[Rfam]
RNA sequence: UUGGGGAUUAGUAUGAAAAUUCGCAGGAAAAUAAUUUUCCUGCGAAUUUUCAUACUAAUCCCCAAAA
Numbered sequence: 001u002u003g004g005g006g007a008u009u010a011g012u013a014u015g016a017a018a019a020u021u022c023g024c025a026g027g028a029a030a031a032u033a034a035u036u037u038u039c040c041u042g043c044g045a046a047u048u049u050u051c052a053u054a055c056u057a058a059u060c061c062c063c064a065a066a067a
Base pairs, nucleotide, nucleotide: 002064003063004062005061006060007059008058009057010056011055012054013053014052015051016050017049018048019047020046021045022044023043024042025041026040027039028038029037030036
Dot-bracket structure: .(((((((((((((((((((((((((((((.....)))))))))))))))))))))))))))))...